[Rfam]
RNA sequence: AACAUUUUCGGUAACUGGCGAUGAACGUGGAGGCCACCACGAGGGAGCCGGAAAACAAACGCUUUGCAUAAAAUCGCAUGCCGUUCGCCUGGGCAUCCGCG
Numbered sequence: 001a002a003c004a005u006u007u008u009c010g011g012u013a014a015c016u017g018g019c020g021a022u023g024a025a026c027g028u029g030g031a032g033g034c035c036a037c038c039a040c041g042a043g044g045g046a047g048c049c050g051g052a053a054a055a056c057a058a059a060c061g062c063u064u065u066g067c068a069u070a071a072a073a074u075c076g077c078a079u080g081c082c083g084u085u086c087g088c089c090u091g092g093g094c095a096u097c098c099g100c101g
Base pairs, nucleotide, nucleotide: 005054006053007052008051009050010049011048012047015044016043017089018088019087020086021085027040028039029038030037078096079095080094081093082092
The family of this 101-nucleotide sequence from Aureibacillus halotolerans is "ZMP/ZTP riboswitch aptamer (pfl RNA motif)". NCBI's taxonomy places the organism under Bacteria, Bacillati, Bacillota, Bacillaceae, Aureibacillus.